RNA sequence: AAUGAGUUGUUUGCGCUUUUCAUUAUAGAUCAUAUGGGAUUUUUUCAUACUCAAAAAGGCUCCAUAAUCUCCGUGGUGGUUUUACCCACUACAGAAAUUAUAGAGCC
Dot-bracket structure: ((((((..((....))..))))))..(((((......)))))...............(((((.(((((.((..((((((......))))))..)).))))).)))))
Numbered sequence: 001a002a003u004g005a006g007u008u009g010u011u012u013g014c015g016c017u018u019u020u021c022a023u024u025a026u027a028g029a030u031c032a033u034a035u036g037g038g039a040u041u042u043u044u045u046c047a048u049a050c051u052c053a054a055a056a057a058g059g060c061u062c063c064a065u066a067a068u069c070u071c072c073g074u075g076g077u078g079g080u081u082u083u084a085c086c087c088a089c090u091a092c093a094g095a096a097a098u099u100a101u102a103g104a105g106c107c
Stems, first nucleotide, its partner, number of pairs: 001024006009016002027042005058107005064101005070095002074091006
This 107-nucleotide RNA sequence from Streptococcus merionis belongs to the Rfam family "Streptococcus RNA 266". By type it is a small RNA. Pairs were carried over by alignment from the consensus structure. A reference for the family is Acebo et al. (2012), "Identification of 88 regulatory small RNAs in the TIGR4 strain of the human pathogen Streptococcus pneumoniae", RNA.